[Rfam]
RNA: Glycine riboswitch aptamer
Organism: Devosia crocina
RNA sequence: ACCUCGAUUGCGGGAGAGACCGGCUUUGCCGGCGCCGAAGGAGCAACCGCCCCGGAAACUCUCAGGCAAAAGGACCGCAAUCGGGUC
Numbered sequence: 001a002c003c004u005c006g007a008u009u010g011c012g013g014g015a016g017a018g019a020c021c022g023g024c025u026u027u028g029c030c031g032g033c034g035c036c037g038a039a040g041g042a043g044c045a046a047c048c049g050c051c052c053c054g055g056a057a058a059c060u061c062u063c064a065g066g067c068a069a070a071a072g073g074a075c076c077g078c079a080a081u082c083g084g085g086u087c
Base pairs, nucleotide, nucleotide: 006082007081008080009079010078011077012076013075020032021031022030023029034067035066036065037063038062041061042060043059047055048054